[Rfam]
RNA sequence: GAGCAGUGAUGAAAUUUACUUGUGAAUGGUGGGUCCAUCACAAAUCUGAUCCUUGGGAUAGAAUAACAAGUGCAUCUGAGCUC
Numbered sequence: 001g002a003g004c005a006g007u008g009a010u011g012a013a014a015u016u017u018a019c020u021u022g023u024g025a026a027u028g029g030u031g032g033g034u035c036c037a038u039c040a041c042a043a044a045u046c047u048g049a050u051c052c053u054u055g056g057g058a059u060a061g062a063a064u065a066a067c068a069a070g071u072g073c074a075u076c077u078g079a080g081c082u083c
Stems, first nucleotide, its partner, number of pairs: 001083004
The record is an 83-nucleotide RNA from Arachis hypogaea, which matches "small nucleolar RNA snoR114" in Rfam. A reference for the family is Chen and Wu (2009), "Mining small RNA sequencing data: a new approach to identify small nucleolar RNAs in Arabidopsis", Nucleic Acids Res. The organism belongs to Arachis, within Eukaryota. Pairs were carried over by alignment from the consensus structure, which was predicted with RNAalifold. The family has 24 seed sequences and 1,645 matches in Rfam 15.1.